The family of this 88-nucleotide sequence from Stappia sediminis is "Glycine riboswitch aptamer". From the family's description: This family represents the bacterial glycine riboswitch. Pairs were carried over by alignment from the consensus structure. Lineage of the source: Bacteria > Pseudomonadota > Hyphomicrobiales > Stappiaceae > Stappia.

RNA sequence: AAACGUCCCGCGGGAGAGGCCGGUCCCAACCGGCGCCGAAGGAGCAACCGCCCCGGAAACUCUCAGGCAAAAGGACCGCAGGACGAGC
Numbered sequence: 001a002a003a004c005g006u007c008c009c010g011c012g013g014g015a016g017a018g019g020c021c022g023g024u025c026c027c028a029a030c031c032g033g034c035g036c037c038g039a040a041g042g043a044g045c046a047a048c049c050g051c052c053c054c055g056g057a058a059a060c061u062c063u064c065a066g067g068c069a070a071a072a073g074g075a076c077c078g079c080a081g082g083a084c085g086a087g088c
Stems, first nucleotide, its partner, number of pairs: 006083003010079004020033004035068003038064002042062003048056002